[Rfam]
Nucleotides: 063
Base pairs, nucleotide, nucleotide: 010025011024012023013022016054017053018052019051020050021049032044033043034042035041
Number, partner (000 for none) and nucleotide at each position: 001000a002000a003000u004000c005000g006000g007000g008000c009000u010025g011024g012023c013022g014000a015000u016054g017053a018052g019051g020050c021049u022013c023012g024011c025010c026000c027000g028000a029000a030000u031000u032044g033043u034042c035041u036000u037000c038000u039000c040000c041035a042034g043033a044032c045000u046000g047000a048000u049021g050020g051019c052018c053017u054016c055000u056000a057000c058000g059000a060000a061000a062000g063000a
Background:
Shown here is a 63-nucleotide sequence from Anaerolinea thermolimosa, a member of the family "Fluoride riboswitch aptamer (crcB RNA motif)". Taxonomically the source falls in Anaerolinea (Bacteria, Bacillati, Chloroflexota, Anaerolineaceae).